Background: Rfam assigns this 84-nucleotide RNA from Nitrosomonas europaea to the family "Burkholderia RNA 7 (anti-hemB)". The literature on the family includes a 2007 paper in Nucleic Acids Res by Weinberg et al., "Identification of 22 candidate structured RNAs in bacteria using the CMfinder comparative genomics pipeline". It scores 62 bits against the family's covariance model. Rfam describes the family as follows. This RNA motif was identified by computational search in b-proteobacteria Burkholderia. Co-purified with Hfq, expression confirmed by Northern blot. It is annotated as a small RNA.
RNA sequence: CCUCUCGCCUUCCCUCCCUGAGGCGAGGCCUUACAAGCAAGGCGAUUCUCCCCGGCUCAAUCCCCUUUAGCCGGGGUUUUUUUU
Numbered sequence: 001c002c003u004c005u006c007g008c009c010u011u012c013c014c015u016c017c018c019u020g021a022g023g024c025g026a027g028g029c030c031u032u033a034c035a036a037g038c039a040a041g042g043c044g045a046u047u048c049u050c051c052c053c054g055g056c057u058c059a060a061u062c063c064c065c066u067u068u069a070g071c072c073g074g075g076g077u078u079u080u081u082u083u084u
Stems, first nucleotide, its partner, number of pairs: 004027006028043005050076008